[Rfam]
RNA sequence: CGGUCGGCAGUUCACCGAGGCGUUGCCGCGCAGCCUGUCUGCGAGCUGAACCUGCCC
Dot-bracket structure: ((((.........))))...........((((.......))))..............